[Rfam]
RNA sequence: ACUGUGGAGUGUACACAAACCUGCGAGUAGCGUAUUACUUUGUAAUCGCCAAAGCAUGCACAUUGAAGCAGUAA
Numbered sequence: 001a002c003u004g005u006g007g008a009g010u011g012u013a014c015a016c017a018a019a020c021c022u023g024c025g026a027g028u029a030g031c032g033u034a035u036u037a038c039u040u041u042g043u044a045a046u047c048g049c050c051a052a053a054g055c056a057u058g059c060a061c062a063u064u065g066a067a068g069c070a071g072u073a074a
Stems, first nucleotide, its partner, number of pairs: 001072005009061005022056003030049003035045002

A member of the RNA family "RAGATH-18 RNA", 74 nucleotides long. Actinobacteria, Firmicutes, Fusobacteria, Thermotogae (1 example). Pairs were carried over by alignment from the consensus structure, which is taken from published work.